[Rfam]
RNA sequence: CCAAAGGCUCUUUUCAGAGCCACCCAAACCGUCCGAUAGAGAGCGG
Numbered sequence: 001c002c003a004a005a006g007g008c009u010c011u012u013u014u015c016a017g018a019g020c021c022a023c024c025c026a027a028a029c030c031g032u033c034c035g036a037u038a039g040a041g042a043g044c045g046g
Stems, first nucleotide, its partner, number of pairs: 006021006